[Rfam]
RNA sequence: UGGCGAUGAUGACAAAGCCAAGGCUUGUUUCUUGACAUUUGCAGUAGCGACCCAAGAGCUUUCUCCCUGCUAGGCUUGAGAGCUAGUCCUGCUAAUUCCUUCAUGGGAUGUCUGAGGCA
Numbered sequence: 001u002g003g004c005g006a007u008g009a010u011g012a013c014a015a016a017g018c019c020a021a022g023g024c025u026u027g028u029u030u031c032u033u034g035a036c037a038u039u040u041g042c043a044g045u046a047g048c049g050a051c052c053c054a055a056g057a058g059c060u061u062u063c064u065c066c067c068u069g070c071u072a073g074g075c076u077u078g079a080g081a082g083c084u085a086g087u088c089c090u091g092c093u094a095a096u097u098c099c100u101u102c103a104u105g106g107g108a109u110g111u112c113u114g115a116g117g118c119a
Stems, first nucleotide, its partner, number of pairs: 001119002004116001058083006